Rfam assigns this 125-nucleotide RNA from Helicobacter sp. MIT 99-10781 to the family "Bacterial antisense RNA HPnc0260". A reference for the family is Sharma et al. (2010), "The primary transcriptome of the major human pathogen Helicobacter pylori", Nature.
[Rfam]
RNA sequence: CAAACUUAAGGUUAAAAAACACACUAUACCAAAGAAAAGAGUUAAUACGAAGUUAAUUUUUAAGAAAAUUUGAAGCCCUGAAAGAAUGGUGAUCACGACUGGACUUGAACCAGCGACCACUACCA
Numbered sequence: 001c002a003a004a005c006u007u008a009a010g011g012u013u014a015a016a017a018a019a020c021a022c023a024c025u026a027u028a029c030c031a032a033a034g035a036a037a038a039g040a041g042u043u044a045a046u047a048c049g050a051a052g053u054u055a056a057u058u059u060u061u062a063a064g065a066a067a068a069u070u071u072g073a074a075g076c077c078c079u080g081a082a083a084g085a086a087u088g089g090u091g092a093u094c095a096c097g098a099c100u101g102g103a104c105u106u107g108a109a110c111c112a113g114c115g116a117c118c119a120c121u122a123c124c125a
Stems, first nucleotide, its partner, number of pairs: 010025003042056003087122005096115002099113004